[Rfam]
RNA: mir-499 microRNA precursor family
Organism: Clarias magur
RNA sequence: GAGAGCGAGGCAGUUAAGACUUGCAGUGAUGUUUAGGUAAUUUCACCCAUGAACAUCACUUUAAGUCUGUGCUGCCUCCA
Numbered sequence: 001g002a003g004a005g006c007g008a009g010g011c012a013g014u015u016a017a018g019a020c021u022u023g024c025a026g027u028g029a030u031g032u033u034u035a036g037g038u039a040a041u042u043u044c045a046c047c048c049a050u051g052a053a054c055a056u057c058a059c060u061u062u063a064a065g066u067c068u069g070u071g072c073u074g075c076c077u078c079c080a
Stems, first nucleotide, its partner, number of pairs: 017068007026059010